Shown here is a 132-nucleotide RNA from Pyrococcus furiosus, a member of the family "HgcE RNA (Pab105)". For this family Rfam cites "Noncoding RNA genes identified in AT-rich hyperthermophiles" (Klein et al., Proc Natl Acad Sci U S A, 2002). The family's consensus secondary structure was predicted with PFOLD. Rfam links the family to the GO term RNA processing. By type it is an H/ACA-box small nucleolar RNA. Taxonomically the source falls in Pyrococcus (Archaea, Methanobacteriati, Thermococci, Thermococcales). The HgcE ncRNA gene was identified computationally in AT-rich hyperthermophiles. The genes were named hgcA through hgcG ('high GC').It was also identified as a part of Pab105 H/ACA snoRNA with rRNA targets.

RNA sequence: GGCGCGCGAUGAACGAGGUGACGUCUCCGGGCGGACAGGGCCCGGCCUUCGGGGCCGCCUGAGGGAGCCGAGAAGGGCAGACGAUGAAGGCGGGCGGAUAAGCCGGGCCCUCAAAGGGUUUUGAUUCUAAUU
Numbered sequence: 001g002g003c004g005c006g007c008g009a010u011g012a013a014c015g016a017g018g019u020g021a022c023g024u025c026u027c028c029g030g031g032c033g034g035a036c037a038g039g040g041c042c043c044g045g046c047c048u049u050c051g052g053g054g055c056c057g058c059c060u061g062a063g064g065g066a067g068c069c070g071a072g073a074a075g076g077g078c079a080g081a082c083g084a085u086g087a088a089g090g091c092g093g094g095c096g097g098a099u100a101a102g103c104c105g106g107g108c109c110c111u112c113a114a115a116g117g118g119u120u121u122u123g124a125u126u127c128u129a130a131u132u
Stems, first nucleotide, its partner, number of pairs: 038110009049097002055093006067078003
Dot-bracket structure: .....................................(((((((((..((....((((((......(((......))).........))))))..))....)))))))))......................